[Rfam]
RNA sequence: CGACGUCUUCAGGGCGGGGUGGAAGUCCCCACCGGCGGUAGGCACCGGCGACGGUGCGAGCCCGCGAGCGCCUGUGGUCACGCCGCAGGGUCAGCAGAUCCGGUCGAAUGCCGGAGCCGACGGUCACAGUCCGGAGGAGAGAAGACGCCA
Numbered sequence: 001c002g003a004c005g006u007c008u009u010c011a012g013g014g015c016g017g018g019g020u021g022g023a024a025g026u027c028c029c030c031a032c033c034g035g036c037g038g039u040a041g042g043c044a045c046c047g048g049c050g051a052c053g054g055u056g057c058g059a060g061c062c063c064g065c066g067a068g069c070g071c072c073u074g075u076g077g078u079c080a081c082g083c084c085g086c087a088g089g090g091u092c093a094g095c096a097g098a099u100c101c102g103g104u105c106g107a108a109u110g111c112c113g114g115a116g117c118c119g120a121c122g123g124u125c126a127c128a129g130u131c132c133g134g135a136g137g138a139g140a141g142a143a144g145a146c147g148c149c150a
Stems, first nucleotide, its partner, number of pairs: 004147007017029003031130002033119002035065004060117002068095002099115005121133003
Rfam assigns this 150-nucleotide RNA sequence from Rehaibacterium terrae to the family "FMN riboswitch aptamer (RFN element)". It scores 95 bits against the family's covariance model.